Glycine riboswitch aptamer: a 100-nucleotide RNA sequence from Ruminococcaceae bacterium AM28-23LB. Taxonomically the source falls in Oscillospiraceae (Bacteria, Bacillati, Bacillota, Clostridia). Rfam describes the family as follows. This family represents the bacterial glycine riboswitch.
[Rfam]
Nucleotides: 100
Base pairs, nucleotide, nucleotide: 007094010091011090012089013088020030021029022028023027032080033079034078035076036075039074041072045067046066047065048064049063050062051061052060
Number, partner (000 for none) and nucleotide at each position: 001000u002000g003000a004000a005000a006000c007094u008000u009000a010091u011090c012089g013088g014000g015000a016000g017000a018000g019000a020030c021029c022028c023027c024000u025000c026000c027023g028022g029021g030020g031000c032080g033079c034078c035076g036075a037000a038000g039074a040000u041072g042000c043000a044000a045067g046066u047065g048064c049063u050062g051061u052060u053000c054000u055000g056000u057000c058000a059000a060052a061051a062050c063049a064048g065047c066046g067045c068000g069000a070000a071000a072041c073000u074039u075036u076035c077000a078034g079033g080032c081000a082000a083000a084000a085000g086000g087000a088013c089012c090011g091010a092000g093000c094007g095000u096000g097000g098000a099000c100000c